RNA sequence: AGGUGACCGCCUUCUUACCUUUAUCAAUGGAGGCACUCGAUUACACUGUGGGUUACAAAAAUACCUUAGAUACGCAUGUUAUCACUGGUGUAGUGUGAGGGAGGGUUAGAUGCCCU
Numbered sequence: 001a002g003g004u005g006a007c008c009g010c011c012u013u014c015u016u017a018c019c020u021u022u023a024u025c026a027a028u029g030g031a032g033g034c035a036c037u038c039g040a041u042u043a044c045a046c047u048g049u050g051g052g053u054u055a056c057a058a059a060a061a062u063a064c065c066u067u068a069g070a071u072a073c074g075c076a077u078g079u080u081a082u083c084a085c086u087g088g089u090g091u092a093g094u095g096u097g098a099g100g101g102a103g104g105g106u107u108a109g110a111u112g113c114c115c116u
Base pairs, nucleotide, nucleotide: 001020002019003018004017009034010033011032012031013030014029036099037098038097039096040094041093042092043091044090045089046088047087050066051065052064053063069083070082071081072080102116103115104114105113106112
RNA: epsC RNA
Organism: Ureibacillus yapensis